RNA sequence: AAAGCUCUGUGUGUGGAUGGCAUUCAGCACUAGGGACAGGUCUGUUUGCCUGCGUGUGGAUGGCAUUCAGCACCAGGGACAGGUCUGUUUGCCU
Numbered sequence: 001a002a003a004g005c006u007c008u009g010u011g012u013g014u015g016g017a018u019g020g021c022a023u024u025c026a027g028c029a030c031u032a033g034g035g036a037c038a039g040g041u042c043u044g045u046u047u048g049c050c051u052g053c054g055u056g057u058g059g060a061u062g063g064c065a066u067u068c069a070g071c072a073c074c075a076g077g078g079a080c081a082g083g084u085c086u087g088u089u090u091g092c093c094u
Stems, first nucleotide, its partner, number of pairs: 004085001006083005018075003023070002026067002030063003034055001037052005

mir-2060 microRNA precursor family: a 94-nucleotide RNA sequence from Branchiostoma lanceolatum.
NCBI's taxonomy places the organism under Eukaryota, Metazoa, Chordata, Amphioxiformes, Branchiostoma.
Gene Ontology terms of the family: miRNA-mediated post-transcriptional gene silencing and RISC complex.